RNA sequence: GCAAUAGAGCGCUAGGGUUCCGGUUUGUGAUUUCACAAAUGUCUGGUCCGAGAGCACUCGACCUCCCAGGUUAUGCGGAGGUUACACGGCGGGAUAAAAGCCCGGGAGAC
Numbered sequence: 001g002c003a004a005u006a007g008a009g010c011g012c013u014a015g016g017g018u019u020c021c022g023g024u025u026u027g028u029g030a031u032u033u034c035a036c037a038a039a040u041g042u043c044u045g046g047u048c049c050g051a052g053a054g055c056a057c058u059c060g061a062c063c064u065c066c067c068a069g070g071u072u073a074u075g076c077g078g079a080g081g082u083u084a085c086a087c088g089g090c091g092g093g094a095u096a097a098a099a100g101c102c103c104g105g106g107a108g109a110c
Stems, first nucleotide, its partner, number of pairs: 007059003011055002015049002020046002022043001023040006060083007085105001087108001091103003